[Rfam]
RNA: c-di-AMP riboswitch aptamer (ydaO/yuaA leader)
Organism: Solirubrobacterales bacterium
Nucleotides: 142
Stems, first nucleotide, its partner, number of pairs: 012126003018041007042122006052060002061107003069081004084101004
Number, partner (000 for none) and nucleotide at each position: 001000g002000u003000a004000g005000a006000c007000c008000c009000g010000u011000a012126g013125c014124c015000g016000a017000a018041u019040c020039c021038c022037c023036g024035c025000g026000c027000g028000u029000c030000a031000u032000c033000g034000a035024g036023c037022g038021g039020g040019g041018a042122a043121c044120g045119g046118g047117g048000g049000a050000c051000c052060c053059a054000g055000a056000u057000g058000u059053u060052g061107g062106g063105g064000c065000c066000a067000g068000c069081c070080c071079a072078c073000c074000g075000a076000a077000g078072g079071u080070g081069g082000g083000g084101g085100c086099g087098c088000u089000g090000c091000u092000c093000c094000u095000c096000u097000a098087g099086c100085g101084c102000c103000a104000g105063c106062c107061c108000g109000u110000c111000a112000g113000c114000u115000a116000a117047c118046c119045c120044c121043g122042u123000a124014g125013g126012c127000c128000c129000g130000a131000a132000a133000a134000g135000g136000a137000g138000a139000a140000c141000g142000g